Annotation
Rfam assigns this 83-nucleotide RNA from Anabarilius grahami to the family "Small nucleolar RNA SNORD35". The family's consensus secondary structure was predicted with PFOLD. Taxonomically the source falls in Anabarilius (Eukaryota, Neopterygii, Ostariophysi, Xenocyprididae). It scores 59 bits against the family's covariance model. The family's RNA type in Rfam is C/D-box small nucleolar RNA. Its family is annotated with RNA processing and nucleolus in the Gene Ontology. U35 is a C/D box snoRNA located in intron 6 of ribosomal protein L13A and intron 3 of ribosomal protein S11 in humans and at homologous positions in mouse and chicken ribosomal protein genes. U35 guides the methylation of 2'-O-ribose sites in 28S rRNA.
RNA sequence: UGCAAAUGAUGUUUUCUCACGAUGGUCUUCCAAGUCUGCGAGACUCUGACGAUACUGCCUUAUGGCAUCACUGAUGCAGCAAA
Numbered sequence: 001u002g003c004a005a006a007u008g009a010u011g012u013u014u015u016c017u018c019a020c021g022a023u024g025g026u027c028u029u030c031c032a033a034g035u036c037u038g039c040g041a042g043a044c045u046c047u048g049a050c051g052a053u054a055c056u057g058c059c060u061u062a063u064g065g066c067a068u069c070a071c072u073g074a075u076g077c078a079g080c081a082a083a
Stems, first nucleotide, its partner, number of pairs: 001078004